[Rfam]
RNA sequence: CUUUGUUGAUAGAUGAAUCGACAAGCCCUUUACCAGUUAAAUGUAUGAUGUGAUAGUCAUGAAGUAGUGGUUCUAAGUUUUGUCUGAUGAUUUCAUUUAAUUUCUUGCUACCGAGGCUUCCGCCCAUUACAAGUAAGACCUUCUUAUCAUGAUCAAAUCCAGUUAAUUGAUAACC
Numbered sequence: 001c002u003u004u005g006u007u008g009a010u011a012g013a014u015g016a017a018u019c020g021a022c023a024a025g026c027c028c029u030u031u032a033c034c035a036g037u038u039a040a041a042u043g044u045a046u047g048a049u050g051u052g053a054u055a056g057u058c059a060u061g062a063a064g065u066a067g068u069g070g071u072u073c074u075a076a077g078u079u080u081u082g083u084c085u086g087a088u089g090a091u092u093u094c095a096u097u098u099a100a101u102u103u104c105u106u107g108c109u110a111c112c113g114a115g116g117c118u119u120c121c122g123c124c125c126a127u128u129a130c131a132a133g134u135a136a137g138a139c140c141u142u143c144u145u146a147u148c149a150u151g152a153u154c155a156a157a158u159c160c161a162g163u164u165a166a167u168u169g170a171u172a173a174c175c
Stems, first nucleotide, its partner, number of pairs: 017171003024164003029157003036065003044055003069093002072090001077084001103138007
A member of the RNA family "Staphylococcus sRNA 414" from Staphylococcus saccharolyticus, 175 nucleotides long. The family's RNA type in Rfam is small RNA. About the family: Antisense of an annotated CDS (SAOUHSC_1422) but was considered an trans-encoded sRNA rather than a typical antisense RNA. Target prediction revealed enrichment of iron-coding genes and genes with function in cofator metabolism. The source organism's lineage runs through Bacteria, Bacillati, Bacillota, Bacilli and Staphylococcus.